[Rfam]
Nucleotides: 401
Base pairs, nucleotide, nucleotide: 001397003395004394005393006392007391008390009389010388011386012353013352014351015350016349017348018347020049021048023046024045025044026043028041054384055383056382058381059380060379061378062377063231064230065229066228070283071282072281073280075227076226077225078224079223080094081093082092083091084090095109096107097106098105099104110222111221115220116219117216118215119214132161133160134157135156136155141152142151143150144149169187170186171185172184173183174182189211190209191208192207193206194205195204196203197202235310236309237308243301244300245299246298247297274288275287276286277285278284317336319334320333321332322331323330324329
Number, partner (000 for none) and nucleotide at each position: 001397c002000a003395a004394g005393u006392g007391g008390a009389u010388c011386a012353g013352a014351u015350a016349g017348u018347c019000g020049c021048c022000g023046g024045c025044u026043g027000a028041c029000g030000a031000c032000a033000u034000u035000u036000u037000u038000g039000c040000c041028g042000c043026c044025a045024g046023c047000g048021g049020g050000a051000g052000g053000a054384a055383a056382g057000u058381c059380c060379g061378g062377g063231c064230u065229c066228c067000a068000c069000a070283g071282g072281a073280c074000a075227g076226g077225g078224u079223g080094g081093u082092c083091g084090a085000u086000a087000a088000c089000g090084u091083c092082g093081a094080c095109c096107g097106g098105u099104c100000g101000u102000g103000a104099g105098a106097u107096c108000a109095g110222g111221g112000a113000a114000a115220g116219u117216g118215c119214c120000g121000c122000a123000g124000a125000a126000a127000a128000u129000a130000u131000a132161c133160c134157g135156c136155c137000u138000a139000a140000g141152u142151c143150c144149c145000u146000u147000c148000g149144g150143g151142g152141a153000a154000c155136g156135g157134u158000a159000a160133g161132g162000g163000u164000g165000a166000a167000a168000u169187g170186g171185u172184g173183c174182g175000g176000u177000a178000a179000g180000a181000g182174c183173g184172c185171a186170c187169c188000a189211g190209c191208a192207g193206c194205u195204g196203g197202g198000g199000u200000g201000a202197c203196u204195c205194a206193g207192c208191u209190g210000g211189c212000u213000u214119g215118g216117u217000a218000a219116a220115c221111c222110c223079c224078a225077c226076c227075c228066g229065g230064a231063g232000c233000a234000a235310g236309g237308c238000a239000a240000a241000c242000a243301g244300g245299c246298g247297g248000a249000a250000a251000a252000c253000g254000c255000g256000u257000u258000g259000g260000c261000a262000a263000c264000a265000a266000c267000g268000c269000c270000g271000c272000a273000c274288g275287g276286g277285c278284u279000c280073g281072u282071c283070c284278g285277g286276c287275c288274c289000g290000u291000c292000a293000c294000c295000u296000a297247c298246c299245g300244c301243c302000g303000g304000g305000u306000a307000c308237g309236c310235u311000g312000c313000u314000a315000g316000a317336g318000a319334c320333g321332u322331g323330g324329a325000g326000c327000a328000a329324u330323u331322c332321a333320c334319g335000c336317c337000g338000u339000a340000g341000a342000g343000g344000a345000a346000u347018g348017a349016c350015u351014a352013u353012c354000c355000c356000u357000g358000c359000a360000c361000u362000c363000g364000u365000u366000g367000c368000a369000g370000g371000a372000c373000a374000a375000a376000a377062c378061c379060c380059g381058g382056c383055u384054u385000a386011u387000c388010g389009a390008u391007c392006c393005a394004c395003u396000c397001g398000g399000g400000u401000c
A member of the RNA family "Bacterial RNase P class A" from Bremerella alba, 401 nucleotides long. The source organism's lineage runs through Bacteria, Planctomycetia, Pirellulales, Pirellulaceae and Bremerella. About the family: Ribonuclease P (RNase P) is a ubiquitous endoribonuclease, found in archaea, bacteria and eukarya as well as chloroplasts and mitochondria. Its best characterised activity is the generation of mature 5'-ends of tRNAs by cleaving the 5'-leader elements of precursor-tRNAs. Cellular RNase Ps are ribonucleoproteins.